[Rfam]
This 372-nucleotide RNA sequence from Roseobacter sp. CCS2 belongs to the Rfam family "Bacterial RNase P class A". The base pairs follow the family's consensus structure, which is taken from published work. About the family: Ribonuclease P (RNase P) is a ubiquitous endoribonuclease, found in archaea, bacteria and eukarya as well as chloroplasts and mitochondria. Rfam classes the family as a ribozyme.
Nucleotides: 372
Base pairs, nucleotide, nucleotide: 001368002367003366004365005364006363007362008361009360010359011357012319013318014317015316016315017314018313020033021032022031023030024029038355039354040353042352043351044350045349046348047208048207049206050205057251059204060203061202062201063200064078065077066076067075068074079093080091081090082089083088094199095198099197100196101193102192103191116139117138119134120133121132122131123130124129147165148164149163150162151161152160166188167186168185169184172181173180174179212275213274214273215272222266223265224264225263226262246258247257283302284301285300286299287298288297289296290295
Number, partner (000 for none) and nucleotide at each position: 001368g002367c003366g004365g005364a006363u007362g008361g009360c010359u011357g012319g013318a014317u015316g016315a017314c018313u019000g020033c021032g022031g023030c024029a025000g026000c027000a028000a029024u030023g031022u032021c033020g034000a035000g036000g037000a038355a039354a040353g041000u042352c043351c044350g045349g046348a047208c048207u049206c050205c051000a052000a053000a054000a055000a056000g057251c058000a059204c060203g061202g062201u063200g064078c065077c066076g067075g068074g069000u070000a071000a072000c073000g074068c075067c076066c077065g078064g079093c080091g081090g082089g083088g084000g085000u086000a087000a088083c089082c090081c091080c092000a093079g094199g095198g096000a097000a098000a099197g100196c101193g102192c103191c104000a105000c106000a107000g108000a109000g110000a111000a112000c113000a114000g115000a116139c117138u118000a119134c120133c121132u122131g123130a124129u125000u126000u127000c128000g129124a130123u131122c132121a133120g134119g135000a136000a137000a138117a139116g140000g141000u142000g143000a144000a145000a146000c147165g148164g149163u150162g151161g152160g153000g154000u155000a156000a157000g158000a159000g160152c161151c162150c163149a164148c165147c166188g167186c168185g169184c170000a171000a172181g173180c174179g175000g176000c177000a178000a179174c180173g181172c182000a183000a184169g185168c186167g187000g188166c189000a190000c191103g192102g193101c194000a195000a196100g197099c198095c199094c200063c201062a202061c203060c204059g205050g206049g207048a208047g209000c210000a211000a212275u213274g214273c215272c216000a217000a218000a219000u220000a221000g222266g223265g224264a225263c226262c227000u228000c229000g230000c231000g232000u233000c234000g235000c236000a237000a238000g239000a240000c241000g242000g243000g244000g245000a246258u247257g248000c249000u250000u251057g252000a253000a254000c255000c256000c257247c258246a259000g260000a261000u262226g263225g264224u265223c266222c267000g268000g269000g270000u271000u272215g273214g274213c275212a276000g277000c278000u279000a280000g281000a282000g283302g284301g285300c286299g287298u288297c289296u290295g291000g292000c293000a294000a295290c296289a297288g298287g299286c300285g301284c302283c303000c304000c305000a306000g307000a308000u309000g310000a311000a312000u313018g314017g315016u316015c317014a318013u319012c320000c321000a322000u323000u324000u325000g326000u327000g328000g329000g330000c331000a332000a333000c334000c335000a336000c337000a338000a339000a340000g341000g342000a343000c344000a345000g346000a347000a348046u349045c350044c351043g352042g353040c354039u355038u356000a357011u358000a359010g360009g361008c362007c363006a364005u365004c366003c367002g368001c369000g370000c371000a372000u